[Rfam]
RNA sequence: GGAGACGUCCACCCGGUAAGUUGUGAGCCGCAACACCGGAAGCGAGUUUUGCGUGGGAUGCGGUAACGUAAUCCUGCGAAGCGUAAACAGCAUGGCUGUAGGGAUGGCUAUUGAGCAUCGAAAGACUAACAUAUCCGAGGGACGACGCUGUUGCCUGAGCGGAAGUCAACACACAUAUGGACGUUAACGGCGAGGAAGUAUGUGCCCGGCGGUGUCGGAAAGAA
Numbered sequence: 001g002g003a004g005a006c007g008u009c010c011a012c013c014c015g016g017u018a019a020g021u022u023g024u025g026a027g028c029c030g031c032a033a034c035a036c037c038g039g040a041a042g043c044g045a046g047u048u049u050u051g052c053g054u055g056g057g058a059u060g061c062g063g064u065a066a067c068g069u070a071a072u073c074c075u076g077c078g079a080a081g082c083g084u085a086a087a088c089a090g091c092a093u094g095g096c097u098g099u100a101g102g103g104a105u106g107g108c109u110a111u112u113g114a115g116c117a118u119c120g121a122a123a124g125a126c127u128a129a130c131a132u133a134u135c136c137g138a139g140g141g142a143c144g145a146c147g148c149u150g151u152u153g154c155c156u157g158a159g160c161g162g163a164a165g166u167c168a169a170c171a172c173a174c175a176u177a178u179g180g181a182c183g184u185u186a187a188c189g190g191c192g193a194g195g196a197a198g199u200a201u202g203u204g205c206c207c208g209g210c211g212g213u214g215u216c217g218g219a220a221a222g223a224a
Base pairs, nucleotide, nucleotide: 013039014038015037016036020034021033023031024030027191028190042091043090046088047087048086049085050083051082052078053077054076055075056074057073058072059070060069061068062067112218113216115215116214117213118212119211120210135209136208137207139206140205141167142166143165146161147160148159149158172204173203174202175201176200177199178198182194
RNA: Group II catalytic intron D1-D4-6
Organism: Sarcina sp. DSM 11001